MIR319 microRNA precursor family: a 93-nucleotide RNA from Apostasia shenzhenica.

RNA sequence: CAGAAAUAGGGGUUCCUUUCAGUUUAAAUCAUGGAAAUAGGAUAUCAUUUGUUCUUGCUGUGUGCUUUGGACUGAAGGGAGCUCCUAGUUCUU
Numbered sequence: 001c002a003g004a005a006a007u008a009g010g011g012g013u014u015c016c017u018u019u020c021a022g023u024u025u026a027a028a029u030c031a032u033g034g035a036a037a038u039a040g041g042a043u044a045u046c047a048u049u050u051g052u053u054c055u056u057g058c059u060g061u062g063u064g065c066u067u068u069g070g071a072c073u074g075a076a077g078g079g080a081g082c083u084c085c086u087a088g089u090u091c092u093u
Stems, first nucleotide, its partner, number of pairs: 007087012021073002024070005

Rfam 15.1 lists 168 matches to the family in 79 species. Taxonomically the source falls in Apostasia (Eukaryota, Streptophytina, Spermatophyta, Magnoliopsida).